[Rfam]
RNA: tRNA
RNA sequence: AACACCGUAGCUCAAUGGCUAGAGCGCAGGGCUUCGGCCCUGAGGUGCCUGUUCAAUUUGGGCCGGUGUUA
Numbered sequence: 001a002a003c004a005c006c007g008u009a010g011c012u013c014a015a016u017g018g019c020u021a022g023a024g025c026g027c028a029g030g031g032c033u034u035c036g037g038c039c040c041u042g043a044g045g046u047g048c049c050u051g052u053u054c055a056a057u058u059u060g061g062g063c064c065g066g067u068g069u070u071a
Base pairs, nucleotide, nucleotide: 001070002069003068004067005066006065007064010025011024012023013022027042028041029040030039031038047063048062049061050060051059